[Rfam]
Nucleotides: 176
Stems, first nucleotide, its partner, number of pairs: 001016006028176001031173001037168001041163006047156001049154003063151006074143003078136002082132003085113004091106004
Number, partner (000 for none) and nucleotide at each position: 001016u002015c003014u004013g005012u006011c007000g008000u009000g010000a011006g012005a013004c014003a015002g016001g017000a018000a019000g020000u021000g022000a023000a024000g025000g026000a027000a028176g029000c030000a031173g032000g033000a034000c035000u036000a037168c038000a039000a040000a041163c042162c043161u044160c045159g046158g047156u048000a049154c050153u051152g052000a053000c054000g055000a056000a057000c058000a059000g060000g061000a062000a063151c064150c065149a066148g067147a068146u069000a070000u071000g072000a073000g074143g075142c076141u077000g078136u079135g080000a081000g082132g083131u084130u085113g086112g087111a088110u089000a090000a091106g092105c093104a094103a095000g096000c097000a098000c099000a100000u101000c102000a103094u104093u105092g106091u107000g108000a109000c110088g111087u112086c113085c114000g115000a116000a117000a118000c119000a120000c121000u122000u123000a124000a125000a126000a127000g128000u129000g130084a131083a132082c133000a134000c135079c136078a137000a138000a139000a140000c141076a142075g143074u144000a145000g146068a147067u148066c149065u150064g151063g152051c153050a154049g155000g156047a157000a158046u159045c160044g161043a162042g163041g164000g165000a166000a167000a168037g169000a170000a171000g172000a173031u174000g175000u176028u

Shown here is a 176-nucleotide RNA from Salegentibacter echinorum, a member of the family "Group II catalytic intron D1-D4-3". Its family is annotated with Group II intron splicing in the Gene Ontology. The literature on the family includes a 2003 paper in Crit Rev Biochem Mol Biol by Lehmann and Schmidt, "Group II introns: structure and catalytic versatility of large natural ribozymes".